[Rfam]
A member of the RNA family "small nucleolar RNA snoR117" from Hevea brasiliensis, 84 nucleotides long.
The family's RNA type in Rfam is C/D-box small nucleolar RNA.
A reference for the family is Chen and Wu (2009), "Mining small RNA sequencing data: a new approach to identify small nucleolar RNAs in Arabidopsis", Nucleic Acids Res.
NCBI's taxonomy places the organism under Eukaryota, Embryophyta, Euphyllophyta, rosids, Hevea.
RNA sequence: GGCCUGUGAUGCAUAGAAAAUUGUCCGUACCAUCUGAUGAUAUCUAUCUCUUGAUGCAUUGAAACAUCUCUACUUCUGAGGCCU
Numbered sequence: 001g002g003c004c005u006g007u008g009a010u011g012c013a014u015a016g017a018a019a020a021u022u023g024u025c026c027g028u029a030c031c032a033u034c035u036g037a038u039g040a041u042a043u044c045u046a047u048c049u050c051u052u053g054a055u056g057c058a059u060u061g062a063a064a065c066a067u068c069u070c071u072a073c074u075u076c077u078g079a080g081g082c083c084u
Stems, first nucleotide, its partner, number of pairs: 001083004